[Rfam]
RNA: Eukaryotic large subunit ribosomal RNA, nucleotides 1120 to 1455
Organism: Galemys pyrenaicus
RNA sequence: GAGUCUAACGUGUGCGCGAGUCAGAGGCUCGCGCAAAAGCCACCGUGGCGCAAUUAAGGUGAAGGCUCUGGCGGGGAGCGGCUCUGGUCUCUCCCCCACUGGGCCGAGGUGGGAUCCCAAGGCAUCUCCCAGUCCGGCGAGGGCGCACCACUGGCCCGUCUCACCCGCUGCACCGGGGAGGUGGAGCACGAGCGCACACAUUAGGACCCGAAAGAUGGUGAACUAUGCCUGGGCAGGGCGAAGCCAGGGGAAACUCUGGUGGAGGUACGUAGCAGUCCUGACGUGCAAAUAGGGGUAUAGGGGCGAAAGACUAAUCGAACCAUCUAGUAGCUGGUU
Numbered sequence: 001g002a003g004u005c006u007a008a009c010g011u012g013u014g015c016g017c018g019a020g021u022c023a024g025a026g027g028c029u030c031g032c033g034c035a036a037a038a039g040c041c042a043c044c045g046u047g048g049c050g051c052a053a054u055u056a057a058g059g060u061g062a063a064g065g066c067u068c069u070g071g072c073g074g075g076g077a078g079c080g081g082c083u084c085u086g087g088u089c090u091c092u093c094c095c096c097c098a099c100u101g102g103g104c105c106g107a108g109g110u111g112g113g114a115u116c117c118c119a120a121g122g123c124a125u126c127u128c129c130c131a132g133u134c135c136g137g138c139g140a141g142g143g144c145g146c147a148c149c150a151c152u153g154g155c156c157c158g159u160c161u162c163a164c165c166c167g168c169u170g171c172a173c174c175g176g177g178g179a180g181g182u183g184g185a186g187c188a189c190g191a192g193c194g195c196a197c198a199c200a201u202u203a204g205g206a207c208c209c210g211a212a213a214g215a216u217g218g219u220g221a222a223c224u225a226u227g228c229c230u231g232g233g234c235a236g237g238g239c240g241a242a243g244c245c246a247g248g249g250g251a252a253a254c255u256c257u258g259g260u261g262g263a264g265g266u267a268c269g270u271a272g273c274a275g276u277c278c279u280g281a282c283g284u285g286c287a288a289a290u291a292g293g294g295g296u297a298u299a300g301g302g303g304c305g306a307a308a309g310a311c312u313a314a315u316c317g318a319a320c321c322a323u324c325u326a327g328u329a330g331c332u333g334g335u336u
Stems, first nucleotide, its partner, number of pairs: 005204004010199008020049003026041004053060002108152005116143002154187002156184006165175001207334002210331001214324006223300007236268001238266002243260007277293002281290001302312002